[Rfam]
Shown here is a 108-nucleotide RNA from Algibacter mikhailovii, a member of the family "SAM riboswitch aptamer (S box leader)". The source organism's lineage runs through Bacteria, Pseudomonadati, Bacteroidota, Flavobacteriaceae and Algibacter. From the family's description: The SAM riboswitch is found upstream of a number of genes which code for proteins involved in methionine or cysteine biosynthesis in Gram-positive bacteria. The SAM riboswitch acts at the level of transcription termination control. The predicted structure consists of a complex stem-loop region followed by a single stem loop terminator region. An alternative and mutually exclusive form involves bases in the 3' segment of helix 1 with those in the 5' region of helix 5 to form a structure termed the anti-terminator form. This entry represents the conserved core of the complex structure involving helices 1-4. The base pairs follow the family's consensus structure, which is taken from published work.
RNA sequence: AUGUUAUCAAGAAAGGUAGAGGGAUUAGACCCAAUGAAACCUUGGCAACCCUUUAACUUGUAAAGAAGGUGCUACGUUCUACUCCUAGCAAUAGGAGACAGAUAACGA
Number, nucleotide and partner (000 for none) at each position: 001a000002u107003g106004u105005u104006a103007u102008c101009a000010a000011g000012a000013a043014a042015g041016g040017u039018a000019g000020a000021g032022g031023g030024a000025u000026u081027a080028g079029a078030c023031c022032c021033a000034a000035u000036g000037a000038a000039a017040c016041c015042u014043u013044g073045g072046c071047a070048a000049c069050c068051c065052u064053u063054u062055a000056a000057c000058u000059u000060g000061u000062a054063a053064a052065g051066a000067a000068g050069g049070u047071g046072c045073u044074a000075c000076g000077u100078u029079c028080u027081a026082c097083u096084c095085c094086u093087a092088g000089c000090a000091a000092u087093a086094g085095g084096a083097g082098a000099c000100a077101g008102a007103u006104a005105a004106c003107g002108a000